[Rfam]
RNA: Proteobacterial sRNA psRNA2
RNA sequence: GGAUUACUCCUUUACGCUUUCGCGUUUGGUUGAUAAAGAUUCGCACCUCUAUCAAACCGGGUAAUCCCACCUCUUGGCAAGACCUGCUGUCAGAUCAAAUCUGAACUACUACACCUAAAGCUUUAUUCUGACGAGAGCAGUUAUGCCGUGCCGCUUGCGUUUGAUCUUGCCGAAUGUUCUAUGAGAACCGUGACCUGUUC
Dot-bracket structure: (((((((.((...((((....))))..((((((((.((........)).)))).))))))))))))).......(((...((..(...(((((((...))))).)).((...(..........................................)..))..).))...)))............................